This 113-nucleotide RNA from Pelovirga terrestris belongs to the Rfam family "SAM riboswitch aptamer (S box leader)". A reference for the family is Grundy and Henkin (1998), "The S box regulon: a new global transcription termination control system for methionine and cysteine biosynthesis genes in gram-positive bacteria", Mol Microbiol. The SAM riboswitch is found upstream of a number of genes which code for proteins involved in methionine or cysteine biosynthesis in Gram-positive bacteria. It scores 94 bits against the family's covariance model. The base pairs follow the family's consensus structure, which is taken from published work.
[Rfam]
RNA sequence: AUCUCAUCAAGAGUGGUGGAGGGACAGGCCCUGUGAAACCACAGCAACCGGUUCGUUCUGAUCGAAUGUCAGGUGCUAAAUCCUGCCCUGACGUUUUCAGGGGAAGAUGAGAA
Numbered sequence: 001a002u003c004u005c006a007u008c009a010a011g012a013g014u015g016g017u018g019g020a021g022g023g024a025c026a027g028g029c030c031c032u033g034u035g036a037a038a039c040c041a042c043a044g045c046a047a048c049c050g051g052u053u054c055g056u057u058c059u060g061a062u063c064g065a066a067u068g069u070c071a072g073g074u075g076c077u078a079a080a081u082c083c084u085g086c087c088c089u090g091a092c093g094u095u096u097u098c099a100g101g102g103g104a105a106g107a108u109g110a111g112a113a
Stems, first nucleotide, its partner, number of pairs: 002112007013042005021031003025085004043077004048073002050070003081105001086102006